This 91-nucleotide RNA sequence belongs to the Rfam family "c-di-GMP-II-GAG riboswitch aptamer".

[Rfam]
RNA sequence: ACAACGGUAGAGGCUUAGAUGCCCGCCCCGUAAAAGAGCGUGGCACCCACGGGGGUGGGCGGAGUCAGUGGUGCGACCGGCUACCCCCAGG
Numbered sequence: 001a002c003a004a005c006g007g008u009a010g011a012g013g014c015u016u017a018g019a020u021g022c023c024c025g026c027c028c029c030g031u032a033a034a035a036g037a038g039c040g041u042g043g044c045a046c047c048c049a050c051g052g053g054g055g056u057g058g059g060c061g062g063a064g065u066c067a068g069u070g071g072u073g074c075g076a077c078c079g080g081c082u083a084c085c086c087c088c089a090g091g
Stems, first nucleotide, its partner, number of pairs: 006085005012066003021060008042077001043074005